Shown here is an 80-nucleotide RNA from Hermetia illucens, a member of the family "drz-agam-1 ribozyme". A search with the family's covariance model found it, with a score of 40 bits. Pairs were carried over by alignment from the consensus structure, which is taken from published work. On this family, see Webb et al., Science 2009: "Widespread occurrence of self-cleaving ribozymes".
[Rfam]
RNA sequence: CUCCUACCAAACCCUAUUUUCACCUCCGCGUGGUGAUCGCUGGGAGUUCUUUCUUCAUGGAAAACUGCAGACGGAGAAGG
Number, nucleotide and partner (000 for none) at each position: 001c000002u000003c000004c000005u000006a000007c000008c000009a000010a000011a000012c000013c080014c079015u078016a000017u076018u075019u074020u073021c000022a034023c033024c032025u000026c000027c000028g000029c000030g000031u000032g024033g023034u022035g000036a000037u000038c000039g000040c000041u000042g000043g000044g000045a000046g066047u000048u064049c000050u062051u061052u060053c000054u059055u000056c000057a000058u000059g054060g052061a051062a050063a000064a048065c000066u046067g000068c000069a000070g000071a000072c000073g020074g019075a018076g017077a000078a015079g014080g013